[Rfam]
This 82-nucleotide RNA from Plasmodium knowlesi belongs to the Rfam family "small nucleolar RNA snoR22". The source organism's lineage runs through Eukaryota, Haemosporida, Plasmodiidae, Plasmodium and Plasmodium knowlesi. Gene Ontology terms of the family: RNA processing and nucleolus. On this family, see Chakrabarti et al., RNA 2007: "Structural RNAs of known and unknown function identified in malaria parasites by comparative genomics and RNA analysis".

RNA sequence: UUUUUAUGAUGAUAAAAUAUGUCAAAAGCAAGUAGGGACAUGAGAAUAUAAAAUGUGUUCGCGUUUAUAAUAUCUGAAAAAA
Numbered sequence: 001u002u003u004u005u006a007u008g009a010u011g012a013u014a015a016a017a018u019a020u021g022u023c024a025a026a027a028g029c030a031a032g033u034a035g036g037g038a039c040a041u042g043a044g045a046a047u048a049u050a051a052a053a054u055g056u057g058u059u060c061g062c063g064u065u066u067a068u069a070a071u072a073u074c075u076g077a078a079a080a081a082a
Stems, first nucleotide, its partner, number of pairs: 001082004